[Rfam]
Nucleotides: 087
Base pairs, nucleotide, nucleotide: 012038013037017033018032019031020030022029023028041081042080043079044078046077047076048075049072050071051070056067057066058065059064
Number, partner (000 for none) and nucleotide at each position: 001000c002000c003000a004000c005000g006000a007000a008000c009000a010000g011000g012038g013037c014000a015000a016000a017033c018032c019031a020030c021000u022029c023028c024000g025000a026000a027000a028023g029022g030020g031019u032018g033017g034000g035000a036000c037013g038012c039000a040000a041081a042080g043079c044078c045000u046077c047076c048075g049072g050071c051070c052000u053000u054000a055000a056067a057066c058065a059064a060000u061000a062000a063000a064059u065058u066057g067056u068000c069000u070051g071050g072049u073000a074000g075048c076047g077046g078044g079043g080042u081041u082000g083000c084000c085000g086000a087000u
A member of the RNA family "c-di-GMP-I riboswitch aptamer" from Vibrio galatheae, 87 nucleotides long. Taxonomically the source falls in Vibrio (Bacteria, Pseudomonadati, Pseudomonadota, Vibrionales). Pairs were carried over by alignment from the consensus structure, which is taken from published work. About the family: GEMM was predicted in a large-scale screen for bacterial structured RNA regulatory elements.